[Rfam]
RNA sequence: CAAUGGCCCUCUAUUCUCUACAUAGUGCACUACAGUGGGCCCUGGUCAAAAGUAGUGCACUAUGAAGGGAAUAGGGAGCCAUUUG
Number, nucleotide and partner (000 for none) at each position: 001c085002a084003a083004u000005g080006g079007c078008c000009c076010u075011c074012u000013a072014u071015u070016c069017u068018c067019u066020a000021c000022a000023u062024a061025g060026u059027g058028c057029a056030c055031u054032a000033c000034a000035g000036u000037g000038g000039g000040c000041c000042c000043u000044g000045g000046u000047c000048a000049a000050a000051a000052g000053u000054a031055g030056u029057g028058c027059a026060c025061u024062a023063u000064g000065a000066a019067g018068g017069g016070a015071a014072u013073a000074g011075g010076g009077a000078g007079c006080c005081a000082u000083u003084u002085g001

A member of the RNA family "mir-130 microRNA precursor family" from Salmo trutta, 85 nucleotides long. A search with the family's covariance model found it, with a score of 41 bits. The family's consensus secondary structure was predicted with PFOLD. Lineage of the source: Eukaryota > Deuterostomia > Chordata > Teleostomi > Salmo. Rfam links the family to the GO terms miRNA-mediated post-transcriptional gene silencing and RISC complex.